[Rfam]
The family of this 54-nucleotide sequence from Salmo salar is "UnaL2 LINE 3' element".
Rfam's curators write: The eel long interspersed element (LINE) UnaL2 and its partner short interspersed element (SINE) share a conserved 3' tail containing a stem-loop that is critical for their retrotransposition.
For this family Rfam cites "Solution structure of an RNA stem-loop derived from the 3' conserved region of eel LINE UnaL2" (Baba et al., RNA, 2004).
The organism belongs to Salmo, within Eukaryota.
The family's consensus secondary structure is taken from published work.
The family has 30 seed sequences and 493,311 matches in Rfam 15.1.
A search with the family's covariance model found it, with a score of 57 bits.
RNA sequence: UGCAUUCACUACUGUAAGUUGCUCUGUAUAAGAGCAUCUGCUAAAUGUAAAAUG
Numbered sequence: 001u002g003c004a005u006u007c008a009c010u011a012c013u014g015u016a017a018g019u020u021g022c023u024c025u026g027u028a029u030a031a032g033a034g035c036a037u038c039u040g041c042u043a044a045a046u047g048u049a050a051a052a053u054g
Stems, first nucleotide, its partner, number of pairs: 013043001014041003020036006